[Rfam]
RNA sequence: UUGUGUCAACGGCAAACUUUUCGAAAGACAAGGACGCAAAGCUUCCGGCCUAAGGACUCAGUCUAAGGUAGCGGAGCUACCACA
Numbered sequence: 001u002u003g004u005g006u007c008a009a010c011g012g013c014a015a016a017c018u019u020u021u022c023g024a025a026a027g028a029c030a031a032g033g034a035c036g037c038a039a040a041g042c043u044u045c046c047g048g049c050c051u052a053a054g055g056a057c058u059c060a061g062u063c064u065a066a067g068g069u070a071g072c073g074g075a076g077c078u079a080c081c082a083c084a
Base pairs, nucleotide, nucleotide: 012037013036017032018031019030021028022027040078041077042076043075045074046073047072048069049068050067055063056062057061